Rfam assigns this 34-nucleotide sequence from Gymnodraco acuticeps to the family "Iron response element I".
Its family is annotated with response to iron ion in the Gene Ontology.
For this family Rfam cites "Identification of the iron-responsive element for the translational regulation of human ferritin mRNA" (Hentze et al., Science, 1987).
It scores 43 bits against the family's covariance model.
The base pairs follow the family's consensus structure, which is taken from published work.
The source organism's lineage runs through Eukaryota, Euteleostomi, Acanthomorphata, Notothenioidei and Gymnodraco.
The family's RNA type in Rfam is cis-regulatory element.
RNA sequence: AGUUCUUGCUUCAACAGUGUUUGAACGGGAUUUU
Numbered sequence: 001a002g003u004u005c006u007u008g009c010u011u012c013a014a015c016a017g018u019g020u021u022u023g024a025a026c027g028g029g030a031u032u033u034u
Stems, first nucleotide, its partner, number of pairs: 001034002003030004008026001010025005015019001